[Rfam]
RNA sequence: UACUUAUCAAGAAAGAUCGAGGGACUGGGCCCGAGGACAUCUUGGCAACAUAUCCAUAGCCGCAAUAUUGGGUGUUGUGCCAAUUCCCAACUCUAGAUGUGAUUAUCUGGAUUAAGAUAGGUA
Numbered sequence: 001u002a003c004u005u006a007u008c009a010a011g012a013a014a015g016a017u018c019g020a021g022g023g024a025c026u027g028g029g030c031c032c033g034a035g036g037a038c039a040u041c042u043u044g045g046c047a048a049c050a051u052a053u054c055c056a057u058a059g060c061c062g063c064a065a066u067a068u069u070g071g072g073u074g075u076u077g078u079g080c081c082a083a084u085u086c087c088c089a090a091c092u093c094u095a096g097a098u099g100u101g102a103u104u105a106u107c108u109g110g111a112u113u114a115a116g117a118u119a120g121g122u123a
Stems, first nucleotide, its partner, number of pairs: 001123008013043005021032003026089004044081004049077002052073004085115001092111008
Rfam assigns this 123-nucleotide sequence from Reichenbachiella sp. 5M10 to the family "SAM riboswitch aptamer (S box leader)". A search with the family's covariance model found it, with a score of 62 bits. The SAM riboswitch is found upstream of a number of genes which code for proteins involved in methionine or cysteine biosynthesis in Gram-positive bacteria.